[Rfam]
RNA sequence: AUAAAUAUUGGGCAAACUUACUGAAAAGUAAGGACGCAAAACUAUAGGGUCUGUAAAAUGAUAGCCAGUUGCACUA
Numbered sequence: 001a002u003a004a005a006u007a008u009u010g011g012g013c014a015a016a017c018u019u020a021c022u023g024a025a026a027a028g029u030a031a032g033g034a035c036g037c038a039a040a041a042c043u044a045u046a047g048g049g050u051c052u053g054u055a056a057a058a059u060g061a062u063a064g065c066c067a068g069u070u071g072c073a074c075u076a
Base pairs, nucleotide, nucleotide: 012037013036017032018031019030020029021028022027040070041069042068043067047066048065049062050061051060

This 76-nucleotide RNA from Variimorphobacter saccharofermentans belongs to the Rfam family "c-di-GMP-I riboswitch aptamer". Rfam links the family to the GO term cyclic-di-GMP binding. From the family's description: GEMM was predicted in a large-scale screen for bacterial structured RNA regulatory elements.